[Rfam]
RNA: Clostridiales-1 RNA
RNA sequence: UAAAAGUCCCGGACAGCAGCCAUGAACCAGACCGUGUUUUACACGGAAUGGUUCAUGGAUAUUGGACGGGCUGACCUAUAUGAACAAGGAGAGCGACAGCUCGGAUUGUGAAUACAGGUGGUGAUUGCGGGAGCACUAAAGUGCGGAGCAAUCGACUUUUA
Numbered sequence: 001u002a003a004a005a006g007u008c009c010c011g012g013a014c015a016g017c018a019g020c021c022a023u024g025a026a027c028c029a030g031a032c033c034g035u036g037u038u039u040u041a042c043a044c045g046g047a048a049u050g051g052u053u054c055a056u057g058g059a060u061a062u063u064g065g066a067c068g069g070g071c072u073g074a075c076c077u078a079u080a081u082g083a084a085c086a087a088g089g090a091g092a093g094c095g096a097c098a099g100c101u102c103g104g105a106u107u108g109u110g111a112a113u114a115c116a117g118g119u120g121g122u123g124a125u126u127g128c129g130g131g132a133g134c135a136c137u138a139a140a141g142u143g144c145g146g147a148g149c150a151a152u153c154g155a156c157u158u159u160u161a
Stems, first nucleotide, its partner, number of pairs: 001161007008070004015063002018060001020058010032046005074119004079114003084109004091102004122154007133144004